RNA sequence: AUGCAUCCAGUAGGAAUUGAACCUAUGAAUUCGCCCGUCAUGAGUUAGGCGCUUUAACCAUUCAGCCAUGGAUGC
Numbered sequence: 001a002u003g004c005a006u007c008c009a010g011u012a013g014g015a016a017u018u019g020a021a022c023c024u025a026u027g028a029a030u031u032c033g034c035c036c037g038u039c040a041u042g043a044g045u046u047a048g049g050c051g052c053u054u055u056a057a058c059c060a061u062u063c064a065g066c067c068a069u070g071g072a073u074g075c
Base pairs, nucleotide, nucleotide: 003075004074005073006072007071008070010026011025012024013023014022040069041068042067044066045065046064048062049061051059
The record is a 75-nucleotide RNA from Ziziphus jujuba, which matches "Plastid-ycf2 5UTR RNA" in Rfam. The base pairs follow the family's consensus structure, which was predicted with LocARNA. From the family's description: Plastid ycf2 is a non-coding RNA (ncRNA) recognised in plastids. Taxonomically the source falls in Ziziphus jujuba (Eukaryota, eudicotyledons, Rhamnaceae, Paliureae). The literature on the family includes a 2023 paper in Plant Commun by Richter et al., "Retrograde signaling in plants: A critical review focusing on the GUN pathway and beyond".